U4 spliceosomal RNA: a 135-nucleotide sequence from Pomacea canaliculata.
A search with the family's covariance model found it, with a score of 54 bits.
It is annotated as a spliceosomal small nuclear RNA.
Pairs were carried over by alignment from the consensus structure, which is taken from published work.
NCBI's taxonomy places the organism under Eukaryota, Bilateria, Protostomia, Gastropoda, Pomacea.
U4 small nuclear RNA (U4 snRNA) is a component of the major U2-dependent spliceosome.
A reference for the family is Zwieb (1997), "The uRNA database", Nucleic Acids Res.
RNA sequence: AGCUUUUCCCAGUGGCGACACCAUAGCCAGUGAGGUUUAGCUGAAGUGUGGGUACUGCUAGUUGAAAGCUAAAUUUAGGAAUACAGCAUUUUAACUCAAACAAAUGCUUAUAAUUUUUCCUGGUUAUUUUACUGA
Numbered sequence: 001a002g003c004u005u006u007u008c009c010c011a012g013u014g015g016c017g018a019c020a021c022c023a024u025a026g027c028c029a030g031u032g033a034g035g036u037u038u039a040g041c042u043g044a045a046g047u048g049u050g051g052g053u054a055c056u057g058c059u060a061g062u063u064g065a066a067a068g069c070u071a072a073a074u075u076u077a078g079g080a081a082u083a084c085a086g087c088a089u090u091u092u093a094a095c096u097c098a099a100a101c102a103a104a105u106g107c108u109u110a111u112a113a114u115u116u117u118u119c120c121u122g123g124u125u126a127u128u129u130u131a132c133u134g135a
Base pairs, nucleotide, nucleotide: 021051022050023049024048026047027046034042035041036040081111082110083109085108086107087106088105089104090103091102124135125134126133